The family of this 95-nucleotide sequence from Hungatella hathewayi is "pemK RNA".
RNA sequence: ACUAUGAUACUUCCGCUUAGUCACAGCCCCCUUGGCAGGGGAACACGCAAUGAGGGCGGCUUCCAGAGAACCUGGGAGAGGUUAGAAGCCUAUGA
Numbered sequence: 001a002c003u004a005u006g007a008u009a010c011u012u013c014c015g016c017u018u019a020g021u022c023a024c025a026g027c028c029c030c031c032u033u034g035g036c037a038g039g040g041g042a043a044c045a046c047g048c049a050a051u052g053a054g055g056g057c058g059g060c061u062u063c064c065a066g067a068g069a070a071c072c073u074g075g076g077a078g079a080g081g082u083u084a085g086a087a088g089c090c091u092a093u094g095a
Base pairs, nucleotide, nucleotide: 012092013059014058015057016056017055018054060078061077062076064074065073066072079091080090081089